[Rfam]
RNA sequence: ACCGCAGACCGCCUUAUCGUUCCCGGUUUUAUCGGGAGAGGAAAGUCCGGACACCAAAGAGUAGCAUAGCGGGUAACGCCCGUCCGUCGUGAGGCGAGGACAAGUGCAACAGAAAGUAUGUACAGGUAAUGCUGUAGUGAAACCAGGUAAACUCUAUGCGGUGAAAUGUCAAGUAUAUCAGCAUUUAAGGGCGACUCGUCCGUUGUUGAAGGGUAGGCAGCUAGAUCCCGUUGGCAACAGCGGGACAAGAUAAAUGAUAAGGCUCCGAUGUAUCGGGGACAGAAUCCGGCUUACAGGUCUGCAUUUUUU
Numbered sequence: 001a002c003c004g005c006a007g008a009c010c011g012c013c014u015u016a017u018c019g020u021u022c023c024c025g026g027u028u029u030u031a032u033c034g035g036g037a038g039a040g041g042a043a044a045g046u047c048c049g050g051a052c053a054c055c056a057a058a059g060a061g062u063a064g065c066a067u068a069g070c071g072g073g074u075a076a077c078g079c080c081c082g083u084c085c086g087u088c089g090u091g092a093g094g095c096g097a098g099g100a101c102a103a104g105u106g107c108a109a110c111a112g113a114a115a116g117u118a119u120g121u122a123c124a125g126g127u128a129a130u131g132c133u134g135u136a137g138u139g140a141a142a143c144c145a146g147g148u149a150a151a152c153u154c155u156a157u158g159c160g161g162u163g164a165a166a167u168g169u170c171a172a173g174u175a176u177a178u179c180a181g182c183a184u185u186u187a188a189g190g191g192c193g194a195c196u197c198g199u200c201c202g203u204u205g206u207u208g209a210a211g212g213g214u215a216g217g218c219a220g221c222u223a224g225a226u227c228c229c230g231u232u233g234g235c236a237a238c239a240g241c242g243g244g245a246c247a248a249g250a251u252a253a254a255u256g257a258u259a260a261g262g263c264u265c266c267g268a269u270g271u272a273u274c275g276g277g278g279a280c281a282g283a284a285u286c287c288g289g290c291u292u293a294c295a296g297g298u299c300u301g302c303a304u305u306u307u308u309u
Stems, first nucleotide, its partner, number of pairs: 001305001004302007011294001012262007020038008043292003047289005052163004059197004064159005069083005084098001085096004099154002104152002106148002121136005167219004178209005189201004226245008
Rfam assigns this 309-nucleotide sequence from Flavobacterium humi to the family "Bacterial RNase P class A". It scores 210 bits against the family's covariance model. The organism belongs to Flavobacterium, within Bacteria.